Rfam assigns this 93-nucleotide RNA from Diplocloster agilis to the family "Selenocysteine transfer RNA".
RNA sequence: GGAAGCAGAUGGAUGCUGGUGUAUCCCCUGGUCUUCAAAACCAGUGUGGGGCGCUUGAUACGUCCCGGGUGGGUUCAAUUCCCACAUGUUUCC
Number, nucleotide and partner (000 for none) at each position: 001g093002g092003a091004a090005g089006c088007a087008g085009a000010u000011g026012g025013a024014u023015g022016c021017u000018g000019g000020u000021g016022u015023a014024u013025c012026c011027c000028c044029u043030g042031g041032u040033c000034u000035u000036c000037a000038a000039a000040a032041c031042c030043a029044g028045u000046g000047u067048g066049g065050g064051g063052c000053g000054c000055u000056u000057g000058a000059u000060a000061c000062g000063u051064c050065c049066c048067g047068g000069g000070u084071g083072g082073g081074u000075u000076c000077a000078a000079u000080u000081c073082c072083c071084a070085c008086a000087u007088g006089u005090u004091u003092c002093c001
Record summary:
For this family Rfam cites "Eukaryotic selenocysteine tRNA has the 9/4 secondary structure" (Mizutani and Goto, FEBS Lett, 2000). Clan: tRNA clan.